[Rfam]
Nucleotides: 128
Base pairs, nucleotide, nucleotide: 002056003055004054005053006052007051008050013045014044015043016042017041018040019039020038021037022035023034024033069121070120071119072118077113078112081110082109084103085102086101088099089098090097091096
Number, partner (000 for none) and nucleotide at each position: 001000g002056g003055g004054g005053u006052g007051u008050g009000c010000u011000c012000a013045g014044a015043g016042c017041a018040g019039g020038g021037g022035g023034c024033c025000u026000g027000a028000a029000g030000a031000a032000u033024g034023g035022c036000u037021c038020c039019u040018c041017u042016g043015u044014u045013u046000a047000c048000a049000a050008c051007a052006c053005a054004c055003c056002c057000a058000a059000c060000a061000g062000g063000a064000a065000g066000c067000u068000g069121g070120g071119g072118u073000c074000a075000u076000c077113g078112u079000g080000a081110u082109g083000a084103g085102g086101g087000g088099c089098a090097c091096a092000a093000a094000c095000u096091u097090g098089u099088g100000g101086c102085c103084u104000c105000c106000c107000u108000a109082c110081a111000g112078a113077c114000a115000a116000a117000u118072g119071c120070c121069c122000u123000a124000c125000a126000u127000g128000u
A member of the RNA family "Small nucleolar RNA SNORA11", 128 nucleotides long. U107 (SNORA11) is a member of the H/ACA class of snoRNAs that guide the sites of modification of uridines to pseudouridines. The family's consensus secondary structure was predicted with RNAalifold.